[Rfam]
RNA sequence: UUCUUAUCGGGAACAGUGUUUCCCAUAACGU
Numbered sequence: 001u002u003c004u005u006a007u008c009g010g011g012a013a014c015a016g017u018g019u020u021u022c023c024c025a026u027a028a029c030g031u
Base pairs, nucleotide, nucleotide: 002030004028005027006026007025009024010023011022012021013020014018
Iron response element II: a 31-nucleotide RNA sequence from Kryptolebias marmoratus. Rfam describes the family as follows. IRE, TFRC, SLC40A1, SDHB, SLC11A2, CDC42BPA, ACO2, ALAS2_H.SAPIENS, CDC14A, EPAS1, ALAS2, qoxD, Hao1, NDUFS1, transferrin, Aconitate. Pairs were carried over by alignment from the consensus structure, which is taken from published work. By type it is a cis-regulatory element.